[Rfam]
RNA sequence: GUAGCUCGAAAGCCGCGUUUGCUCGCCACGCACUCGCCGAUUCUCUCGGCUUUUCGCGAGCGGGCUAAGGUCUGAACGUUCCAGUCCCCUUGCAGUAUUGCACUCGUGUCUAGCCGGCACCGGCCGUAACAGGUUGAGCAGGGUAUCAGACAUGCGCUGGCUGUAGCUUGUAUCGCCCAGAGAUCCGCAAGGGGAGGGCAUAGCGCAGGUCGAGCUUGGAACCACUCUGCGGGGAUCGAGCCAUUUCGUAACUUCUAGUCCCAGCCUCUUUCACGCCUAACGCGCGAGCAUCGCGAGCGAGUGCCCAACUUUCAUCGGGGAGUUGAGAUCCCACAUUGUGUCCCUAUCUAAGUUGGAAAGGGGUCGGUGCUUGGGUGCUGAUUGUGGGAGACGUACGAAGAAAGAGCGCCAAGGGAUAGUGGUUGGGACAACCGUGGCAAAUCUGCGGUAGUCUAAAAUGGCCCUACCCUAGCUCUUUCUUUCUCCCCCGGACGAUUCAGCGUCGCCGGAUUAGCUAUGGUGAUUGAGGAGGUAUGGCUUGGAUGGAGAUGCGCUCUUGAGUUCACUUUGCGGCUCGCACUUGUCUGCUUAUAGUGGACUUGUGUGAAACUCGAUUCAGACUGCUCUUGGGCUGC
Numbered sequence: 001g002u003a004g005c006u007c008g009a010a011a012g013c014c015g016c017g018u019u020u021g022c023u024c025g026c027c028a029c030g031c032a033c034u035c036g037c038c039g040a041u042u043c044u045c046u047c048g049g050c051u052u053u054u055c056g057c058g059a060g061c062g063g064g065c066u067a068a069g070g071u072c073u074g075a076a077c078g079u080u081c082c083a084g085u086c087c088c089c090u091u092g093c094a095g096u097a098u099u100g101c102a103c104u105c106g107u108g109u110c111u112a113g114c115c116g117g118c119a120c121c122g123g124c125c126g127u128a129a130c131a132g133g134u135u136g137a138g139c140a141g142g143g144u145a146u147c148a149g150a151c152a153u154g155c156g157c158u159g160g161c162u163g164u165a166g167c168u169u170g171u172a173u174c175g176c177c178c179a180g181a182g183a184u185c186c187g188c189a190a191g192g193g194g195a196g197g198g199c200a201u202a203g204c205g206c207a208g209g210u211c212g213a214g215c216u217u218g219g220a221a222c223c224a225c226u227c228u229g230c231g232g233g234g235a236u237c238g239a240g241c242c243a244u245u246u247c248g249u250a251a252c253u254u255c256u257a258g259u260c261c262c263a264g265c266c267u268c269u270u271u272c273a274c275g276c277c278u279a280a281c282g283c284g285c286g287a288g289c290a291u292c293g294c295g296a297g298c299g300a301g302u303g304c305c306c307a308a309c310u311u312u313c314a315u316c317g318g319g320g321a322g323u324u325g326a327g328a329u330c331c332c333a334c335a336u337u338g339u340g341u342c343c344c345u346a347u348c349u350a351a352g353u354u355g356g357a358a359a360g361g362g363g364u365c366g367g368u369g370c371u372u373g374g375g376u377g378c379u380g381a382u383u384g385u386g387g388g389a390g391a392c393g394u395a396c397g398a399a400g401a402a403a404g405a406g407c408g409c410c411a412a413g414g415g416a417u418a419g420u421g422g423u424u425g426g427g428a429c430a431a432c433c434g435u436g437g438c439a440a441a442u443c444u445g446c447g448g449u450a451g452u453c454u455a456a457a458a459u460g461g462c463c464c465u466a467c468c469c470u471a472g473c474u475c476u477u478u479c480u481u482u483c484u485c486c487c488c489c490g491g492a493c494g495a496u497u498c499a500g501c502g503u504c505g506c507c508g509g510a511u512u513a514g515c516u517a518u519g520g521u522g523a524u525u526g527a528g529g530a531g532g533u534a535u536g537g538c539u540u541g542g543a544u545g546g547a548g549a550u551g552c553g554c555u556c557u558u559g560a561g562u563u564c565a566c567u568u569u570g571c572g573g574c575u576c577g578c579a580c581u582u583g584u585c586u587g588c589u590u591a592u593a594g595u596g597g598a599c600u601u602g603u604g605u606g607a608a609a610c611u612c613g614a615u616u617c618a619g620a621c622u623g624c625u626c627u628u629g630g631g632c633u634g635c
Base pairs, nucleotide, nucleotide: 001635002634003633004632007629008628009627012574013573014572015571016570017569021061022060023059024058025057036050037049038048039047040046072619073618074617075616076615080235081234082233106120107119108118109117110116121136122135123134124133125132138230139229140228141227142226143225144224156215157214158213575607576606577605578604579603580602
This 635-nucleotide sequence from Rhizoctonia solani belongs to the Rfam family "Nuclear RNase P". Rfam 15.1 lists 3,848 matches to the family in 1,862 species. Pairs were carried over by alignment from the consensus structure, which is taken from published work. Lineage of the source: Eukaryota > Basidiomycota > Agaricomycetes > Cantharellales > Rhizoctonia. By type it is a ribozyme.